Nucleotides: 087
Base pairs, nucleotide, nucleotide: 001087002086003085004084005083007081008080009079010078011077012076013075016072017071018070020068021067022066023065024064025063026062027061028060029059030058031057032056033055034054035053038052039051
Number, partner (000 for none) and nucleotide at each position: 001087u002086u003085u004084c005083a006000u007081g008080c009079u010078g011077u012076g013075a014000c015000u016072c017071u018070c019000c020068a021067a022066a023065g024064g025063g026062g027061a028060g029059c030058g031057c032056u033055u034054u035053u036000u037000g038052u039051u040000g041000u042000c043000u044000g045000a046000a047000g048000g049000a050000a051039a052038a053035g054034a055033a056032g057031g058030c059029g060028c061027u062026c063025c064024c065023c066022u067021u068020u069000a070018g071017a072016g073000g074000u075013u076012u077011a078010c079009g080008g081007u082000u083005u084004g085003a086002g087001a